Shown here is a 72-nucleotide RNA sequence from Gasterosteus aculeatus, a member of the family "tRNA". It is annotated as a transfer RNA. The base pairs follow the family's consensus structure, which is taken from published work.
RNA sequence: UCCCUGAUGGUCUACUAGCUAGGAUUUGGCGCUUUCACCGCCGCGGCCCAGGUUCAACUCCCGGUCAGGGAA
Numbered sequence: 001u002c003c004c005u006g007a008u009g010g011u012c013u014a015c016u017a018g019c020u021a022g023g024a025u026u027u028g029g030c031g032c033u034u035u036c037a038c039c040g041c042c043g044c045g046g047c048c049c050a051g052g053u054u055c056a057a058c059u060c061c062c063g064g065u066c067a068g069g070g071a072a
Base pairs, nucleotide, nucleotide: 001071002070003069004068005067006066007065010025011024012023013022027043028042029041030040031039048064049063051061052060